[Rfam]
RNA sequence: UCGUCAGGCUCAGUCCCCUCCCGAUAAACCCUUAAAUAGGGACUUUCCCGGGGGGUGAUUCUGGCUU
Numbered sequence: 001u002c003g004u005c006a007g008g009c010u011c012a013g014u015c016c017c018c019u020c021c022c023g024a025u026a027a028a029c030c031c032u033u034a035a036a037u038a039g040g041g042a043c044u045u046u047c048c049c050g051g052g053g054g055g056u057g058a059u060u061c062u063g064g065c066u067u
Stems, first nucleotide, its partner, number of pairs: 003065003007061002010058002013056007023047002026045002030041004
Dot-bracket structure: ..(((.((.((.(((((((...((.((..((((....))))..))))..))))))))).)).)))..

This 67-nucleotide RNA sequence from Otolemur garnettii belongs to the Rfam family "mir-484 microRNA precursor family".
It scores 88 bits against the family's covariance model.
The base pairs follow the family's consensus structure, which was predicted with RNAalifold.